[Rfam]
RNA sequence: UAGGUAAAUUAAAUAAUUCGUCGUAUAAUGUCGAGAAUAUGGCUCGAAAGUUUCUACCAAACUACCUUAAAUAGUUUGACUACGAUUAACCCACUAUAGAUA
Dot-bracket structure: .................(.((((((...(.(((((.......))))).)........(((((((.......)))))))..)))))).)..............
RNA: Purine riboswitch aptamer